The record is a 594-nucleotide part of an RNA from Phycomyces blakesleeanus, which matches "Eukaryotic large subunit ribosomal RNA" in Rfam.
The organism belongs to Phycomyces blakesleeanus, within Eukaryota.
The family's consensus secondary structure is taken from published work.
RNA sequence: CGGGGAAAGAAGACCCUGUUGAGCUUGACUCUAGUUUGACAUUGUGAAAAGACAUAGGGGGUGUAGCAUAAGUGGGAGCUUCGGCGCCAAUGAAAUACCACUACCCUUAUUGUUUUUUUACUUAAAUAAUCAUGUGGGAUUGGGCUUCACGGCCCACCUUCUGGUUUUAAGCGCCUUUAUGGCGUGACCCACGUUAUUGACAUUGUCAAGUGGGGAGUUUGGCUGGGGCGGCACAUCUGUUAAAAAAUAACGCAGGUGUCCUAAGGGGGACUCAGCGAGAACAGAAAUCUCGCGUAGAAUAAAAGGGUAAAAGUCCCCUUGAUUUUGAUUUUCAGUGUGAAUACAAACCAUGAAAGUGUGGCCUAUCGAUCCUUUAGAUCCUCAAGAUUUGAGGCUAGAGGUGCCAGAAAAGUUACCACAGGGAUAACUGGCUUGUGGCAGCCAAGCGUUCAUAGCGACGUUGCUUUUUGAUUCUUCGAUGUCGGCUCUUCCUAUCAUACAGAAGCAGAAUUCUGUAAGCGUUGGAUUGUUCACCCACUAAUAGGGAACGUGAGCUGGGUUUAGACCGUCGUGAGACAGGUUAGUUUUACCCUA
Numbered sequence: 001c002g003g004g005g006a007a008a009g010a011a012g013a014c015c016c017u018g019u020u021g022a023g024c025u026u027g028a029c030u031c032u033a034g035u036u037u038g039a040c041a042u043u044g045u046g047a048a049a050a051g052a053c054a055u056a057g058g059g060g061g062u063g064u065a066g067c068a069u070a071a072g073u074g075g076g077a078g079c080u081u082c083g084g085c086g087c088c089a090a091u092g093a094a095a096u097a098c099c100a101c102u103a104c105c106c107u108u109a110u111u112g113u114u115u116u117u118u119u120a121c122u123u124a125a126a127u128a129a130u131c132a133u134g135u136g137g138g139a140u141u142g143g144g145c146u147u148c149a150c151g152g153c154c155c156a157c158c159u160u161c162u163g164g165u166u167u168u169a170a171g172c173g174c175c176u177u178u179a180u181g182g183c184g185u186g187a188c189c190c191a192c193g194u195u196a197u198u199g200a201c202a203u204u205g206u207c208a209a210g211u212g213g214g215g216a217g218u219u220u221g222g223c224u225g226g227g228g229c230g231g232c233a234c235a236u237c238u239g240u241u242a243a244a245a246a247a248u249a250a251c252g253c254a255g256g257u258g259u260c261c262u263a264a265g266g267g268g269g270a271c272u273c274a275g276c277g278a279g280a281a282c283a284g285a286a287a288u289c290u291c292g293c294g295u296a297g298a299a300u301a302a303a304a305g306g307g308u309a310a311a312a313g314u315c316c317c318c319u320u321g322a323u324u325u326u327g328a329u330u331u332u333c334a335g336u337g338u339g340a341a342u343a344c345a346a347a348c349c350a351u352g353a354a355a356g357u358g359u360g361g362c363c364u365a366u367c368g369a370u371c372c373u374u375u376a377g378a379u380c381c382u383c384a385a386g387a388u389u390u391g392a393g394g395c396u397a398g399a400g401g402u403g404c405c406a407g408a409a410a411a412g413u414u415a416c417c418a419c420a421g422g423g424a425u426a427a428c429u430g431g432c433u434u435g436u437g438g439c440a441g442c443c444a445a446g447c448g449u450u451c452a453u454a455g456c457g458a459c460g461u462u463g464c465u466u467u468u469u470g471a472u473u474c475u476u477c478g479a480u481g482u483c484g485g486c487u488c489u490u491c492c493u494a495u496c497a498u499a500c501a502g503a504a505g506c507a508g509a510a511u512u513c514u515g516u517a518a519g520c521g522u523u524g525g526a527u528u529g530u531u532c533a534c535c536c537a538c539u540a541a542u543a544g545g546g547a548a549c550g551u552g553a554g555c556u557g558g559g560u561u562u563a564g565a566c567c568g569u570c571g572u573g574a575g576a577c578a579g580g581u582u583a584g585u586u587u588u589a590c591c592c593u594a
Base pairs, nucleotide, nucleotide: 003593004592005591007588008587015422016421017420018419020418021417022414023413024412025411026410028218029217030216031215035210036209037208038207039206040205041204044121045120046119047118048117049116050115051114052113053112054110055109056108057107058106059105060104071102072101073100074099075098078085079084125198126197127196128195129194135191136190137189138188143154144153145152146151171185172184173183174182175181221234222232223231224230235257236256237255238254239253240252260361261360266318267317268316269315270314271313272298273297275293276292277291278290279289280288299308300307323347324346325345328342329341330340331339349358350357351356372400373399374398375397376396377395380394381393382392383391431472433470435469437465438464439463440462441461442460446456447455483558484556485555486554487553488550489547490546491545492544493543496521499516500515501514502513503512504511523537524536525535527533564582565581566580567579568577569576570575